The record is a 47-nucleotide RNA from Trichechus manatus, which matches "Histone 3' UTR stem-loop" in Rfam.
[Rfam]
Nucleotides: 047
Base pairs, nucleotide, nucleotide: 006021007020008019009018010017011016
Number, partner (000 for none) and nucleotide at each position: 001000u002000a003000a004000a005000a006021g007020g008019c009018u010017c011016u012000u013000u014000u015000c016011a017010g018009a019008g020007c021006c022000a023000c024000c025000c026000a027000a028000u029000u030000a031000a032000u033000c034000c035000u036000a037000a038000a039000a040000a041000g042000a043000g044000c045000g046000a047000u
The family's consensus secondary structure is taken from published work. Rfam 15.1 lists 44,596 matches to the family in 976 species. The organism belongs to Trichechus manatus, within Eukaryota. It scores 40 bits against the family's covariance model.